[Rfam]
Nucleotides: 263
Stems, first nucleotide, its partner, number of pairs: 001263004035246004040241001046223008061207004065121006078107009129187001131186005144171006150164001153161001
Number, partner (000 for none) and nucleotide at each position: 001263g002262g003261u004260c005000u006000g007000u008000g009000a010000a011000g012000a013000a014000c015000a016000g017000u018000a019000a020000a021000a022000g023000g024000u025000c026000u027000g028000a029000u030000u031000g032000u033000g034000c035246c036245a037244g038243g039000a040241c041000u042000u043000g044000c045000a046223g047222a048221u049220c050219c051218g052217u053216g054000c055000c056000c057000u058000c059000u060000u061207c062206u063205c064204c065121c066120a067119g068118c069117a070116g071000c072000u073000u074000c075000u076000c077000c078107c079106c080105a081104g082103c083102c084101a085100c086099g087000g088000c089000a090000g091000a092000g093000u094000g095000g096000u097000g098000g099086u100085g101084u102083g103082g104081c105080u106079g107078g108000c109000a110000g111000a112000g113000u114000g115000c116070u117069u118068g119067c120066u121065g122000a123000c124000a125000g126000c127000g128000u129187g130000g131186g132185g133184u134183g135182u136000g137000c138000c139000c140000a141000g142000g143000c144171c145170g146169u147168g148167u149166u150164c151000a152000c153161c154000c155000c156000g157000a158000g159000c160000a161153g162000c163000g164150g165000a166149g167148a168147c169146a170145c171144g172000a173000c174000u175000g176000g177000c178000a179000u180000c181000g182135g183134c184133a185132u186131c187129c188000a189000a190000c191000a192000g193000u194000c195000u196000g197000g198000c199000u200000u201000g202000a203000a204064g205063g206062a207061g208000c209000u210000g211000g212000g213000g214000c215000u216053c217052g218051u219050g220049g221048a222047u223046u224000g225000g226000u227000c228000u229000g230000a231000c232000u233000g234000c235000a236000c237000a238000u239000g240000u241040g242000a243038u244037c245036u246035g247000a248000c249000u250000u251000u252000u253000c254000u255000g256000c257000u258000g259000a260004g261003a262002c263001c
The family of this 263-nucleotide RNA from Pomatostomus ruficeps is "Small Cajal body specific RNA 6". A reference for the family is Darzacq et al. (2002), "Cajal body-specific small nuclear RNAs: a novel class of 2'-O-methylation and pseudouridylation guide RNAs", EMBO J. From the family's description: U88 is small Cajal body specific RNA (scaRNA). scaRNAs are a novel class of small nuclear RNAs which localise to the Cajal bodies. Gene Ontology terms of the family: RNA processing and nucleolus. Taxonomically the source falls in Pomatostomus (Eukaryota, Opisthokonta, Passeriformes, Sylvioidea).